[Rfam]
A member of the RNA family "Actinobacteria sRNA Ms_IGR-5", 227 nucleotides long.
RNA sequence: ACACGAGAAGGGAGGUGGUUCGGCAGAUGUAUGAGAUCCGGACGCGUGAGGUGGCUGCGGGCUAGGCCCGUCACCAUCAGCGAUUCGGUGCCGGACCGUGUGCGCCCCGCGUACACACCCGGCCCAUUCCAAGCAGUCACCCGACCCGCGGGCCGCCGGUAACGUCCGGCCGGCUCCCUUCCCGGUCCGCCGACCGGGAGGGGACCAUGGCCCGCGGGUCGUCUGCG
Numbered sequence: 001a002c003a004c005g006a007g008a009a010g011g012g013a014g015g016u017g018g019u020u021c022g023g024c025a026g027a028u029g030u031a032u033g034a035g036a037u038c039c040g041g042a043c044g045c046g047u048g049a050g051g052u053g054g055c056u057g058c059g060g061g062c063u064a065g066g067c068c069c070g071u072c073a074c075c076a077u078c079a080g081c082g083a084u085u086c087g088g089u090g091c092c093g094g095a096c097c098g099u100g101u102g103c104g105c106c107c108c109g110c111g112u113a114c115a116c117a118c119c120c121g122g123c124c125c126a127u128u129c130c131a132a133g134c135a136g137u138c139a140c141c142c143g144a145c146c147c148g149c150g151g152g153c154c155g156c157c158g159g160u161a162a163c164g165u166c167c168g169g170c171c172g173g174c175u176c177c178c179u180u181c182c183c184g185g186u187c188c189g190c191c192g193a194c195c196g197g198g199a200g201g202g203g204a205c206c207a208u209g210g211c212c213c214g215c216g217g218g219u220c221g222u223c224u225g226c227g
Stems, first nucleotide, its partner, number of pairs: 015058005060124004065119002142221013155174006

It is annotated as a small RNA. For this family Rfam cites "Identification of small RNAs in Mycobacterium smegmatis using heterologous Hfq" (Li et al., RNA, 2013).